Shown here is a 116-nucleotide sequence from Clostridioides difficile, a member of the family "FMN riboswitch aptamer (RFN element)".
RNA sequence: GUUUUUCUUCAUAAACGGGUGAAAUUCCCUAUCGGCGGUAAAAGCCCGCGAGCCUUAUGGCAUAAUUUGGUCAUAUUCCAAAGCCAACAGUAAAAUCUGGAUGGUAGAAGAAAAUA
Numbered sequence: 001g002u003u004u005u006u007c008u009u010c011a012u013a014a015a016c017g018g019g020u021g022a023a024a025u026u027c028c029c030u031a032u033c034g035g036c037g038g039u040a041a042a043a044g045c046c047c048g049c050g051a052g053c054c055u056u057a058u059g060g061c062a063u064a065a066u067u068u069g070g071u072c073a074u075a076u077u078c079c080a081a082a083g084c085c086a087a088c089a090g091u092a093a094a095a096u097c098u099g100g101a102u103g104g105u106a107g108a109a110g111a112a113a114a115u116a
Stems, first nucleotide, its partner, number of pairs: 003114008017029003031096002034085001035049004044084002054060001066082005088099003
Taxonomically the source falls in Clostridioides (Bacteria, Bacillota, Peptostreptococcales, Peptostreptococcaceae).